[Rfam]
RNA: ZMP/ZTP riboswitch aptamer (pfl RNA motif)
RNA sequence: AGGGAGGUGCGCGACUGGCGAUAGGUAUCAUGGUCUUGCCGGCCAUUGAUGCUGACGUGGGGACACCACUGGGAAGCGCACCGCUCAAAGCCGUUUGGCCACAGCGUUCAGCCGUUCGCCUGGGCAGCCCUU
Numbered sequence: 001a002g003g004g005a006g007g008u009g010c011g012c013g014a015c016u017g018g019c020g021a022u023a024g025g026u027a028u029c030a031u032g033g034u035c036u037u038g039c040c041g042g043c044c045a046u047u048g049a050u051g052c053u054g055a056c057g058u059g060g061g062g063a064c065a066c067c068a069c070u071g072g073g074a075a076g077c078g079c080a081c082c083g084c085u086c087a088a089a090g091c092c093g094u095u096u097g098g099c100c101a102c103a104g105c106g107u108u109c110a111g112c113c114g115u116u117c118g119c120c121u122g123g124g125c126a127g128c129c130c131u132u
Base pairs, nucleotide, nucleotide: 003085004084006082007081008080009079010078011077012076015073016072017120018119019118020117021116057069058068059067060066109127111125112124113123